[Rfam]
The family of this 68-nucleotide RNA sequence from Nematostella vectensis is "mir-2041 microRNA precursor family". Rfam links the family to the GO terms RISC complex and miRNA-mediated post-transcriptional gene silencing. The family's consensus secondary structure was predicted with RNAalifold.

RNA sequence: AACCCAGGGGUAUUUCCCUCUAACGUUUCACUCGCGAGAGAAACGUCACAGGGAAAUGCCCCUGGGUU
Numbered sequence: 001a002a003c004c005c006a007g008g009g010g011u012a013u014u015u016c017c018c019u020c021u022a023a024c025g026u027u028u029c030a031c032u033c034g035c036g037a038g039a040g041a042a043a044c045g046u047c048a049c050a051g052g053g054a055a056a057u058g059c060c061c062c063u064g065g066g067u068u
Base pairs, nucleotide, nucleotide: 001068002067003066004065005064006063007062008061009060010059011058012057013056014055015054016053017052018051019050021048023046024045025044026043027042028041029040031038032037